[Rfam]
RNA sequence: UUCUUAUCAAGAGUGGUGGAGGGAAAGGCCCUGUGAAACCACAGCAACCGGUCCGGUAGCGGACGCCAGGUGCUAAAUCCUGCCCGAAAGGGAGCGAUGAGAG
Numbered sequence: 001u002u003c004u005u006a007u008c009a010a011g012a013g014u015g016g017u018g019g020a021g022g023g024a025a026a027g028g029c030c031c032u033g034u035g036a037a038a039c040c041a042c043a044g045c046a047a048c049c050g051g052u053c054c055g056g057u058a059g060c061g062g063a064c065g066c067c068a069g070g071u072g073c074u075a076a077a078u079c080c081u082g083c084c085c086g087a088a089a090g091g092g093a094g095c096g097a098u099g100a101g102a103g
Base pairs, nucleotide, nucleotide: 001103002102003101004100005099006098007097008096013042014041015040016039017038021031022030023029026081027080028079043074044073045072046071048070049069050067051066052065083092084091085090
Overview
This 103-nucleotide sequence from Geobacter sulfurreducens belongs to the Rfam family "SAM riboswitch aptamer (S box leader)". The organism belongs to Geobacter sulfurreducens, within Bacteria. The family's consensus secondary structure is taken from published work.